[Rfam]
Nucleotides: 094
Base pairs, nucleotide, nucleotide: 001094002093003092004091005090006089008086009085010084011083013081015079016078017077018076019075020074021073022072023071024070026069027068028067030065031064032063033062035060036059037058038057039056042053043052
Number, partner (000 for none) and nucleotide at each position: 001094g002093u003092g004091u005090c006089a007000u008086g009085g010084u011083c012000a013081u014000c015079g016078u017077u018076g019075a020074c021073c022072g023071u024070u025000c026069a027068u028067a029000c030065a031064a032063c033062c034000a035060c036059u037058g038057c039056a040000a041000u042053a043052g044000c045000a046000u047000u048000g049000c050000a051000g052043c053042u054000u055000a056039u057038g058037u059036g060035g061000g062033g063032g064031u065030u066000a067028u068027a069026u070024g071023a072022c073021g074020g075019u076018c077017a078016a079015c080000a081013g082000a083011g084010a085009c086008c087000u088000u089006u090005g091004a092003c093002a094001u